[Rfam]
RNA: Small nucleolar RNA R44/J54/Z268 family
Organism: Brassica carinata
RNA sequence: AGUGCAAGAGACGAUGUCUAGACAUGGACAUCAGAAAGUCUAGGGAUAGGAGAAUGUCUAAAUGGUAUUCUCUCUGAUGCGCU
Numbered sequence: 001a002g003u004g005c006a007a008g009a010g011a012c013g014a015u016g017u018c019u020a021g022a023c024a025u026g027g028a029c030a031u032c033a034g035a036a037a038g039u040c041u042a043g044g045g046a047u048a049g050g051a052g053a054a055u056g057u058c059u060a061a062a063u064g065g066u067a068u069u070c071u072c073u074c075u076g077a078u079g080c081g082c083u
Stems, first nucleotide, its partner, number of pairs: 002082005